[Rfam]
RNA sequence: GUGCAUCUCACGGGAAUUAAACCUGCGACAUCCCAAUUAUGAGUUGGGUGCUUUUACCAUUCAACCAUGGAUGU
Numbered sequence: 001g002u003g004c005a006u007c008u009c010a011c012g013g014g015a016a017u018u019a020a021a022c023c024u025g026c027g028a029c030a031u032c033c034c035a036a037u038u039a040u041g042a043g044u045u046g047g048g049u050g051c052u053u054u055u056a057c058c059a060u061u062c063a064a065c066c067a068u069g070g071a072u073g074u
Stems, first nucleotide, its partner, number of pairs: 003074006011025004039068003043065008
RNA: Plastid-ycf2 5UTR RNA